The family of this 70-nucleotide RNA sequence from Rodentolepis nana is "HDV ribozyme from F. prausnitzii". The organism belongs to Rodentolepis, within Eukaryota. It scores 44 bits against the family's covariance model. For this family Rfam cites "Widespread occurrence of self-cleaving ribozymes" (Webb et al., Science, 2009). Pairs were carried over by alignment from the consensus structure, which is taken from published work.

RNA sequence: GGUGUGCGAUAAAUUUACCUUCACGUGGUGCACUCUGGGCAACGUAUACUUAUACGGCAAAAAAGUCUAU
Numbered sequence: 001g002g003u004g005u006g007c008g009a010u011a012a013a014u015u016u017a018c019c020u021u022c023a024c025g026u027g028g029u030g031c032a033c034u035c036u037g038g039g040c041a042a043c044g045u046a047u048a049c050u051u052a053u054a055c056g057g058c059a060a061a062a063a064a065g066u067c068u069a070u
Base pairs, nucleotide, nucleotide: 001036002035004033005032006031007030017029018028019027043056044055045054046053047052